[Rfam]
RNA sequence: AGCUCGACCGGGUCGACCGCCCGGGUGGUCAGCAGGUAGUCCCGGAGGACGAUGCCGUGCCGGCCCUC
Numbered sequence: 001a002g003c004u005c006g007a008c009c010g011g012g013u014c015g016a017c018c019g020c021c022c023g024g025g026u027g028g029u030c031a032g033c034a035g036g037u038a039g040u041c042c043c044g045g046a047g048g049a050c051g052a053u054g055c056c057g058u059g060c061c062g063g064c065c066c067u068c
Stems, first nucleotide, its partner, number of pairs: 004063003008059001011030003016026003035056004040052002

Shown here is a 68-nucleotide sequence from Planosporangium flavigriseum, a member of the family "ASdes TB sRNA".
It is annotated as a small RNA.
A reference for the family is Arnvig and Young (2009), "Identification of small RNAs in Mycobacterium tuberculosis", Mol Microbiol.
The source organism's lineage runs through Bacteria, Bacillati, Actinomycetota, Micromonosporaceae and Planosporangium.